A member of the RNA family "Small nucleolar RNA snR43" from Lachancea dasiensis, 198 nucleotides long. The literature on the family includes a 1996 paper in Cell by Balakin et al., "The RNA world of the nucleolus: two major families of small RNAs defined by different box elements with related functions". The source organism's lineage runs through Eukaryota, Opisthokonta, Fungi, Ascomycota and Lachancea. Pairs were carried over by alignment from the consensus structure, which is taken from published work. The family's RNA type in Rfam is H/ACA-box small nucleolar RNA.
RNA sequence: CACUCCUAUUUCUGCCCCACAUUCCUUGCACUACCAUGGAAUAAUGGGUUCUAUUCAUGGAGAAGAUAAAGCCCGCAAAUGAGAGCUCCACACUUUUGAUACAACCGUGGUGCCCUUCCAUUUUUGGGAUCGUGAGGAUGCUUCGAACAACCAUUAUGUUUUUCUCAUAAUUAGUGGAUUCGAUGCUUCUCUACAAAU
Numbered sequence: 001c002a003c004u005c006c007u008a009u010u011u012c013u014g015c016c017c018c019a020c021a022u023u024c025c026u027u028g029c030a031c032u033a034c035c036a037u038g039g040a041a042u043a044a045u046g047g048g049u050u051c052u053a054u055u056c057a058u059g060g061a062g063a064a065g066a067u068a069a070a071g072c073c074c075g076c077a078a079a080u081g082a083g084a085g086c087u088c089c090a091c092a093c094u095u096u097u098g099a100u101a102c103a104a105c106c107g108u109g110g111u112g113c114c115c116u117u118c119c120a121u122u123u124u125u126g127g128g129a130u131c132g133u134g135a136g137g138a139u140g141c142u143u144c145g146a147a148c149a150a151c152c153a154u155u156a157u158g159u160u161u162u163u164c165u166c167a168u169a170a171u172u173a174g175u176g177g178a179u180u181c182g183a184u185g186c187u188u189c190u191c192u193a194c195a196a197a198u
Stems, first nucleotide, its partner, number of pairs: 003062004016048004021042005072128004077123005082116002085113002088110004134191004140186002143183002151177006158171003162167001